[Rfam]
RNA: MAT2A 3'UTR stem loop D
Organism: Alligator mississippiensis
RNA sequence: UCUGGGCAGGGGGUGUGAGUACAGAGAAGCCCCUGGCCCAGA
Numbered sequence: 001u002c003u004g005g006g007c008a009g010g011g012g013g014u015g016u017g018a019g020u021a022c023a024g025a026g027a028a029g030c031c032c033c034u035g036g037c038c039c040a041g042a
Stems, first nucleotide, its partner, number of pairs: 001042007010033005